[Rfam]
RNA sequence: GAUCGAUAAUAGCAAACUUAUUGAAAAGUAAGGACGCAAAGCCACGGGCCUAACAUGAAUCUCAUCAUGGUCGCCGGGUUGCCGAA
Numbered sequence: 001g002a003u004c005g006a007u008a009a010u011a012g013c014a015a016a017c018u019u020a021u022u023g024a025a026a027a028g029u030a031a032g033g034a035c036g037c038a039a040a041g042c043c044a045c046g047g048g049c050c051u052a053a054c055a056u057g058a059a060u061c062u063c064a065u066c067a068u069g070g071u072c073g074c075c076g077g078g079u080u081g082c083c084g085a086a
Stems, first nucleotide, its partner, number of pairs: 012037002017032006040080004045076003048071003055065004
Rfam assigns this 86-nucleotide RNA from Halalkalibacter wakoensis to the family "c-di-GMP-I riboswitch aptamer".
A search with the family's covariance model found it, with a score of 81 bits.